The family of this 69-nucleotide RNA from Cebus imitator is "mir-4510 microRNA precursor family". Its family is annotated with RISC complex and miRNA-mediated post-transcriptional gene silencing in the Gene Ontology. The base pairs follow the family's consensus structure, which was predicted with RNAalifold.
[Rfam]
RNA sequence: GAGUAUGUGCGUGAGGGAGUAGAAUGUAUAGCUGUUAGGUAGACAACUAAAAUCUCUCAUGACAGACAG
Numbered sequence: 001g002a003g004u005a006u007g008u009g010c011g012u013g014a015g016g017g018a019g020u021a022g023a024a025u026g027u028a029u030a031g032c033u034g035u036u037a038g039g040u041a042g043a044c045a046a047c048u049a050a051a052a053u054c055u056c057u058c059a060u061g062a063c064a065g066a067c068a069g
Stems, first nucleotide, its partner, number of pairs: 003067002006064003010061009025052001029049003033045004